Rfam assigns this 88-nucleotide RNA from Paenibacillus sp. Leaf72 to the family "c-di-GMP-I riboswitch aptamer". It scores 65 bits against the family's covariance model.
RNA sequence: UUAACGAAAAGGCAAACUCAGGGAAACCUGAUGUGCGCAAAGCUACAGGGGCUUCAUUCCUAACGGAAUAUGCUCGCCAGCUACCGAA
Numbered sequence: 001u002u003a004a005c006g007a008a009a010a011g012g013c014a015a016a017c018u019c020a021g022g023g024a025a026a027c028c029u030g031a032u033g034u035g036c037g038c039a040a041a042g043c044u045a046c047a048g049g050g051g052c053u054u055c056a057u058u059c060c061u062a063a064c065g066g067a068a069u070a071u072g073c074u075c076g077c078c079a080g081c082u083a084c085c086g087a088a
Stems, first nucleotide, its partner, number of pairs: 012038002017033001018031005041082004048078002050074003057068004